The family of this 131-nucleotide sequence from Dipodomys ordii is "Small nucleolar RNA SNORA65". The match comes from Rfam's covariance-model search (96 bits). The family is grouped with related families in Rfam's "SNORA65 clan". It is annotated as an H/ACA-box small nucleolar RNA. U65 belongs to the H/ACA class of snoRNAs which are thought to guide the sites of modification of uridines to pseudouridines.
RNA sequence: CCCGCCACUGCACCUGCUCAAUUCUCAAUUGGCUGGUCAAUCCAGUGGUGAGCAAAUAAUAAACCCCAGCUGUUAGGAAACAGGGUUGUUCUUCAUGUGGAUGAUUCUGUGCUGAAAGCAUGGGGACAGUC
Numbered sequence: 001c002c003c004g005c006c007a008c009u010g011c012a013c014c015u016g017c018u019c020a021a022u023u024c025u026c027a028a029u030u031g032g033c034u035g036g037u038c039a040a041u042c043c044a045g046u047g048g049u050g051a052g053c054a055a056a057u058a059a060u061a062a063a064c065c066c067c068a069g070c071u072g073u074u075a076g077g078a079a080a081c082a083g084g085g086u087u088g089u090u091c092u093u094c095a096u097g098u099g100g101a102u103g104a105u106u107c108u109g110u111g112c113u114g115a116a117a118g119c120a121u122g123g124g125g126a127c128a129g130u131c
Stems, first nucleotide, its partner, number of pairs: 005048006017036001019035002023031001064124003068121001069119003076113002081109006089101003